[Rfam]
RNA sequence: CGAUGCCUCUGGAAAGCGGUGAGCAGAGCUCACCCGCCCAUGGGGAAAGGCGGCCGAACCGCCGAAUCUCUCAGGCGCCCGGUACGGGUGGACGACAGAGGGAGAGGA
Numbered sequence: 001c002g003a004u005g006c007c008u009c010u011g012g013a014a015a016g017c018g019g020u021g022a023g024c025a026g027a028g029c030u031c032a033c034c035c036g037c038c039c040a041u042g043g044g045g046a047a048a049g050g051c052g053g054c055c056g057a058a059c060c061g062c063c064g065a066a067u068c069u070c071u072c073a074g075g076c077g078c079c080c081g082g083u084a085c086g087g088g089u090g091g092a093c094g095a096c097a098g099a100g101g102g103a104g105a106g107g108a
Stems, first nucleotide, its partner, number of pairs: 004103001006101006018034004036076003040071001043070003049063004
Rfam assigns this 108-nucleotide sequence from Mycolicibacterium thermoresistibile to the family "Glycine riboswitch aptamer". Lineage of the source: Bacteria > Bacillati > Actinomycetota > Actinomycetes > Mycolicibacterium thermoresistibile. Its family is annotated with glycine biosynthetic process in the Gene Ontology.